[Rfam]
RNA sequence: GUGGCCGCCAAGGGGUGUUCAGUAAAACCUGAACUGAGAUGUCUGUAUGACGAACCCUUAGAACCUGAUCCGGCUUAUACCGGCGUAGGAAUGGGCCACACUAUCUUU
Numbered sequence: 001g002u003g004g005c006c007g008c009c010a011a012g013g014g015g016u017g018u019u020c021a022g023u024a025a026a027a028c029c030u031g032a033a034c035u036g037a038g039a040u041g042u043c044u045g046u047a048u049g050a051c052g053a054a055c056c057c058u059u060a061g062a063a064c065c066u067g068a069u070c071c072g073g074c075u076u077a078u079a080c081c082g083g084c085g086u087a088g089g090a091a092u093g094g095g096c097c098a099c100a101c102u103a104u105c106u107u108u
Stems, first nucleotide, its partner, number of pairs: 008094003011058004016052001017034005041051003064089004070083004
The record is a 108-nucleotide RNA from Shewanella frigidimarina, which matches "TPP riboswitch aptamer (THI element)" in Rfam. The organism belongs to Shewanella frigidimarina, within Bacteria.